[Rfam]
This 91-nucleotide RNA from Bacillus smithii belongs to the Rfam family "c-di-GMP-I riboswitch aptamer". It scores 80 bits against the family's covariance model. The source organism's lineage runs through Bacteria, Bacillati, Bacillota, Bacilli and Bacillus smithii.
RNA sequence: GAUACGAUUGGGCAAAUUUUACGAAAGUAAAAGACGCAAAGCCACGGGCCUAAAACAAUCUAUAGAUUGUCAUGGUAGCCGGGCUGCCAAG
Numbered sequence: 001g002a003u004a005c006g007a008u009u010g011g012g013c014a015a016a017u018u019u020u021a022c023g024a025a026a027g028u029a030a031a032a033g034a035c036g037c038a039a040a041g042c043c044a045c046g047g048g049c050c051u052a053a054a055a056c057a058a059u060c061u062a063u064a065g066a067u068u069g070u071c072a073u074g075g076u077a078g079c080c081g082g083g084c085u086g087c088c089a090a091g
Stems, first nucleotide, its partner, number of pairs: 012037002017032006040085004045081003048076003055070006